RNA sequence: AAGUUCUAGGAUAAAAACACAGUUCUGGUUGGUUGUCCAGACGUAUCUUUUAUAAAAUAUAAAAUAUAUCAGUAACCUUUCCCUUUGGUUUGCCCAUUCCUAGUAAAUAAAAU
Dot-bracket structure: ...(.((((((..........((.((((........))))))((((.(((((((...))))))).))))...........((....)).........)))))).)........